[Rfam]
RNA sequence: UGGGGUGUUCUUGCUGUCCUGUGCCCUCCUGGCUUCUGCCUGUUCCAGGGGGAGCGCCGGAUAUUGGGCUGUUUCCG
Number, nucleotide and partner (000 for none) at each position: 001u077002g076003g075004g074005g073006u000007g000008u000009u000010c068011u067012u066013g065014c000015u063016g062017u061018c060019c059020u000021g057022u056023g055024c054025c052026c051027u050028c049029c048030u047031g046032g045033c000034u000035u000036c000037u000038g000039c000040c000041u000042g000043u000044u000045c032046c031047a030048g029049g028050g027051g026052g025053a000054g024055c023056g022057c021058c000059g019060g018061a017062u016063a015064u000065u013066g012067g011068g010069c000070u000071g000072u000073u005074u004075c003076c002077g001
Annotation:
mir-8791 microRNA precursor family: a 77-nucleotide sequence from Canis lupus. Taxonomically the source falls in Canis lupus (Eukaryota, Sarcopterygii, Boreoeutheria, Laurasiatheria). Pairs were carried over by alignment from the consensus structure, which was predicted with RNAalifold. It is one of the family's seed sequences. Its Rfam clan is "mir-8791 microRNA precursor clan".